Shown here is a 130-nucleotide sequence from Carlito syrichta, a member of the family "Small nucleolar RNA SNORA51". Rfam links the family to the GO terms nucleolus and RNA processing. The source organism's lineage runs through Eukaryota, Opisthokonta, Mammalia, Primates and Carlito. Rfam describes the family as follows. ACA51 is a member of the H/ACA class of snoRNA that guide the sites of modification of uridines to pseudouridines. The base pairs follow the family's consensus structure, which was predicted with PFOLD.
[Rfam]
RNA sequence: GGCCUCCUGGUGCUUACCACAGCUGUGUUCUUUUGCUGACCACAUAGAAAGAGGAGACAGAGCACAUCUACCCUAUAUACACCUUAGCUCAGGCCUUGUGCCUGGUCUGUAUUGUAAAUGGGGGACAUGG
Numbered sequence: 001g002g003c004c005u006c007c008u009g010g011u012g013c014u015u016a017c018c019a020c021a022g023c024u025g026u027g028u029u030c031u032u033u034u035g036c037u038g039a040c041c042a043c044a045u046a047g048a049a050a051g052a053g054g055a056g057a058c059a060g061a062g063c064a065c066a067u068c069u070a071c072c073c074u075a076u077a078u079a080c081a082c083c084u085u086a087g088c089u090c091a092g093g094c095c096u097u098g099u100g101c102c103u104g105g106u107c108u109g110u111a112u113u114g115u116a117a118a119u120g121g122g123g124g125a126c127a128u129g130g
Stems, first nucleotide, its partner, number of pairs: 002058001004056005022040001025036003071123006085109003089105006